The family of this 318-nucleotide sequence from Colletotrichum orbiculare is "Group I catalytic intron". Rfam describes the family as follows. Group I catalytic introns are large self-splicing ribozymes. They catalyse their own excision from mRNA, tRNA and rRNA precursors in a wide range of organisms. Gene Ontology term of the family: Group I intron splicing. For this family Rfam cites "Self-splicing of group I introns" (Cech, Annu Rev Biochem, 1990). The family has 12 seed sequences and 5,602 matches in Rfam 15.1.
RNA sequence: CCGAGAGGGUCGUCAGAGCGGCGCUGAAAAAGGCGACCGCUAGUGGGGCCUCGCGCCCUGCGACACUGUCAAAUUGCGGGGACUUCCUAGAGCCUUCUGCUACCGCGGCCAGCCGGAAACGGCCGGUGCAGCACCCGGGUUAGCGGCCCGGGGGAUGGUAACAACGCAGCUGGUACGGGAUGACCGCGCAGCCAAGCCCUACGUCUCCCCCACGGGAGAUAGGGGUGCAGUUCAACGACUAAAUGGCAGUGGGUUCGGGGGGUACCGCGGUACGCACCCGGGCUUAAGAUAUAGUCUACGGCGGGCCGAAAGGCCAGU
Numbered sequence: 001c002c003g004a005g006a007g008g009g010u011c012g013u014c015a016g017a018g019c020g021g022c023g024c025u026g027a028a029a030a031a032g033g034c035g036a037c038c039g040c041u042a043g044u045g046g047g048g049c050c051u052c053g054c055g056c057c058c059u060g061c062g063a064c065a066c067u068g069u070c071a072a073a074u075u076g077c078g079g080g081g082a083c084u085u086c087c088u089a090g091a092g093c094c095u096u097c098u099g100c101u102a103c104c105g106c107g108g109c110c111a112g113c114c115g116g117a118a119a120c121g122g123c124c125g126g127u128g129c130a131g132c133a134c135c136c137g138g139g140u141u142a143g144c145g146g147c148c149c150g151g152g153g154g155a156u157g158g159u160a161a162c163a164a165c166g167c168a169g170c171u172g173g174u175a176c177g178g179g180a181u182g183a184c185c186g187c188g189c190a191g192c193c194a195a196g197c198c199c200u201a202c203g204u205c206u207c208c209c210c211c212a213c214g215g216g217a218g219a220u221a222g223g224g225g226u227g228c229a230g231u232u233c234a235a236c237g238a239c240u241a242a243a244u245g246g247c248a249g250u251g252g253g254u255u256c257g258g259g260g261g262g263u264a265c266c267g268c269g270g271u272a273c274g275c276a277c278c279c280g281g282g283c284u285u286a287a288g289a290u291a292u293a294g295u296c297u298a299c300g301g302c303g304g305g306c307c308g309a310a311a312g313g314c315c316a317g318u
Base pairs, nucleotide, nucleotide: 064251065250066249067248068247070245071244075190076189077188078187079185080184085180086179087178088177191231192230196226197225198224199223204219205218206217207216208215235297237296238295239294240293241292253283254282255281256280257279258278259277261275304315305314306313307312